[Rfam]
RNA sequence: UGGCGCCCAACGUGGGGAUCCAGCAUGGGGGAUCCAGUGAAGGAUGCCAUUCGAGUGGCCGGCAGAAAGGAAAAGAAAGUAAAAGAAAAGAGGGAACGACGUGGGAACCUGCUGUGUCUGCACCCCUCGGGUAAGUGAAUGGUGAUUAUGGGUCAAGCAUUGAGCCAAGAUAAGAUGUUCAUUGAAGGACUAGGAAAGGCUAUCAAGGCACGAGGAGUAAAGGUGAAAAUUAAGCAUUUGUGUCAGUAUUUUGAUUAUAUUAAGGAAGUUUGCCCUU
Numbered sequence: 001u002g003g004c005g006c007c008c009a010a011c012g013u014g015g016g017g018a019u020c021c022a023g024c025a026u027g028g029g030g031g032a033u034c035c036a037g038u039g040a041a042g043g044a045u046g047c048c049a050u051u052c053g054a055g056u057g058g059c060c061g062g063c064a065g066a067a068a069g070g071a072a073a074a075g076a077a078a079g080u081a082a083a084a085g086a087a088a089a090g091a092g093g094g095a096a097c098g099a100c101g102u103g104g105g106a107a108c109c110u111g112c113u114g115u116g117u118c119u120g121c122a123c124c125c126c127u128c129g130g131g132u133a134a135g136u137g138a139a140u141g142g143u144g145a146u147u148a149u150g151g152g153u154c155a156a157g158c159a160u161u162g163a164g165c166c167a168a169g170a171u172a173a174g175a176u177g178u179u180c181a182u183u184g185a186a187g188g189a190c191u192a193g194g195a196a197a198g199g200c201u202a203u204c205a206a207g208g209c210a211c212g213a214g215g216a217g218u219a220a221a222g223g224u225g226a227a228a229a230u231u232a233a234g235c236a237u238u239u240g241u242g243u244c245a246g247u248a249u250u251u252u253g254a255u256u257a258u259a260u261u262a263a264g265g266a267a268g269u270u271u272g273c274c275c276u277u
Base pairs, nucleotide, nucleotide: 006031007030008029012026013025014024036051037050038049039048090128091127092125093124097120100116101115102114103113104112136155137154138153140152143150144149162203164200165199166198211253212252213251214250215249217247218246221239222238223237224236225235262277263276264275265274
The record is a 277-nucleotide RNA sequence from Molossus molossus, which matches "Mason-Pfizer monkey virus packaging signal" in Rfam.
It is annotated as a cis-regulatory element.
The base pairs follow the family's consensus structure, which was predicted with PFOLD.
The literature on the family includes a 1995 paper in J Virol by Harrison et al., "Secondary structure model of the Mason-Pfizer monkey virus 5' leader sequence: identification of a structural motif common to a variety of retroviruses".
A search with the family's covariance model found it, with a score of 103 bits.